[Rfam]
The family of this 387-nucleotide part of an RNA from Legionella rubrilucens is "Bacterial large subunit ribosomal RNA". The literature on the family includes a 2001 paper in Science by Yusupov et al., "Crystal structure of the ribosome at 5.5 A resolution".
RNA sequence: GAUAAUGAGGGUGAAAAACCCUCACGCCGGAAGUCCCAGGUUUCCUGCACGACGUUAAUCGGAGCAGGGUGAGUCGGCCCCUAAGGCGAGGCUGAAAGGCGUAGUCGAUGGGAACCAGGUUAAUAUUCCUGGACUUUCUAUAAGUGGUGAUGUGGGGACGAAGAAGGCUAGAUGAGCCGGGCGUUGGUUGUCCCGGUACUUGCACGUAGGUGGAGAGACUUGGCAAAUCCGGUCUCUUGUUAACACGGAGGUGCGAAGUGGUUCUGACCCUUCGGGGUGCAGAGAAGUCAUUGAUGCCAGGCUUCCAGGAAAAGCUGCUAGCCAUAACUUAUAGAGAACCGUACCGCAAACCGACACAGGUGGACAGGUAGAGAAUACUAAGGCGCU
Numbered sequence: 001g002a003u004a005a006u007g008a009g010g011g012u013g014a015a016a017a018a019c020c021c022u023c024a025c026g027c028c029g030g031a032a033g034u035c036c037c038a039g040g041u042u043u044c045c046u047g048c049a050c051g052a053c054g055u056u057a058a059u060c061g062g063a064g065c066a067g068g069g070u071g072a073g074u075c076g077g078c079c080c081c082u083a084a085g086g087c088g089a090g091g092c093u094g095a096a097a098g099g100c101g102u103a104g105u106c107g108a109u110g111g112g113a114a115c116c117a118g119g120u121u122a123a124u125a126u127u128c129c130u131g132g133a134c135u136u137u138c139u140a141u142a143a144g145u146g147g148u149g150a151u152g153u154g155g156g157g158a159c160g161a162a163g164a165a166g167g168c169u170a171g172a173u174g175a176g177c178c179g180g181g182c183g184u185u186g187g188u189u190g191u192c193c194c195g196g197u198a199c200u201u202g203c204a205c206g207u208a209g210g211u212g213g214a215g216a217g218a219c220u221u222g223g224c225a226a227a228u229c230c231g232g233u234c235u236c237u238u239g240u241u242a243a244c245a246c247g248g249a250g251g252u253g254c255g256a257a258g259u260g261g262u263u264c265u266g267a268c269c270c271u272u273c274g275g276g277g278u279g280c281a282g283a284g285a286a287g288u289c290a291u292u293g294a295u296g297c298c299a300g301g302c303u304u305c306c307a308g309g310a311a312a313a314g315c316u317g318c319u320a321g322c323c324a325u326a327a328c329u330u331a332u333a334g335a336g337a338a339c340c341g342u343a344c345c346g347c348a349a350a351c352c353g354a355c356a357c358a359g360g361u362g363g364a365c366a367g368g369u370a371g372a373g374a375a376u377a378c379u380a381a382g383g384c385g386c387u
Stems, first nucleotide, its partner, number of pairs: 006024006025385004033365004039345002044068005053061002075341003080111002085106003089102001091100003115132005135337011147323001152318004160305004166298003171292005176197006198259002202254004210246002214237007222230002262284005351360002367379004
It scores 2844 bits against the family's covariance model.